[Rfam]
RNA: MIR319 microRNA precursor family
RNA sequence: CAGAAAUAGGAGUUCCCUUGCAGCCCAAAACACCCUGCAUGAACUUCAUGUUGUUUUGGACCGAAGGGAGCCCCUUCUUCUU
Numbered sequence: 001c002a003g004a005a006a007u008a009g010g011a012g013u014u015c016c017c018u019u020g021c022a023g024c025c026c027a028a029a030a031c032a033c034c035c036u037g038c039a040u041g042a043a044c045u046u047c048a049u050g051u052u053g054u055u056u057u058g059g060a061c062c063g064a065a066g067g068g069a070g071c072c073c074c075u076u077c078u079u080c081u082u
Base pairs, nucleotide, nucleotide: 008075009074010073012071013070014069015068016067017066018065023061025059026058027057028056029055